[Rfam]
RNA sequence: GGACGGAGCCACUGUCCCUGUCCUCCAGGAGCUCACGUGUGCCUGCCUGUGAGCGCUUCGAUGACAGAGCCCGUGUCCACCCCUGCGCUGCC
Numbered sequence: 001g002g003a004c005g006g007a008g009c010c011a012c013u014g015u016c017c018c019u020g021u022c023c024u025c026c027a028g029g030a031g032c033u034c035a036c037g038u039g040u041g042c043c044u045g046c047c048u049g050u051g052a053g054c055g056c057u058u059c060g061a062u063g064a065c066a067g068a069g070c071c072c073g074u075g076u077c078c079a080c081c082c083c084u085g086c087g088c089u090g091c092c
Stems, first nucleotide, its partner, number of pairs: 005080001008077001010075003016069001018067003022063001024061002027058003031054006037046003